A member of the RNA family "Fluoride riboswitch aptamer (crcB RNA motif)" from Roseburia intestinalis, 74 nucleotides long. Rfam's curators put it in the seed alignment. The base pairs follow the family's consensus structure, which is taken from published work.
[Rfam]
RNA sequence: GUAUGAAACGGGAAUGAGGUUCUCCCACGAUUAAUUCGAAACCGCUAAAUUUAGCUGAUGACUUCUGUGUAGAC
Numbered sequence: 001g002u003a004u005g006a007a008a009c010g011g012g013a014a015u016g017a018g019g020u021u022c023u024c025c026c027a028c029g030a031u032u033a034a035u036u037c038g039a040a041a042c043c044g045c046u047a048a049a050u051u052u053a054g055c056u057g058a059u060g061a062c063u064u065c066u067g068u069g070u071a072g073a074c
Stems, first nucleotide, its partner, number of pairs: 010026004016065006044055004

A reference for the family is Zhao et al. (2017), "An excited state underlies gene regulation of a transcriptional riboswitch", Nat Chem Biol.